[Rfam]
RNA: Bacteroidales small SRP
Organism: Coprobacter fastidiosus
RNA sequence: UGCAGCCGGGUAAGUCCUACACGGUCAGCUCCCGGUCAAUCCCCCAGGGCUUGACCGCAGCAAGGGUAGCCGGUCGUAGCGACGCGAUGUAGGUCGCUUACCCACUU
Numbered sequence: 001u002g003c004a005g006c007c008g009g010g011u012a013a014g015u016c017c018u019a020c021a022c023g024g025u026c027a028g029c030u031c032c033c034g035g036u037c038a039a040u041c042c043c044c045c046a047g048g049g050c051u052u053g054a055c056c057g058c059a060g061c062a063a064g065g066g067u068a069g070c071c072g073g074u075c076g077u078a079g080c081g082a083c084g085c086g087a088u089g090u091a092g093g094u095c096g097c098u099u100a101c102c103c104a105c106u107u
Stems, first nucleotide, its partner, number of pairs: 008103008017092005022086002024083002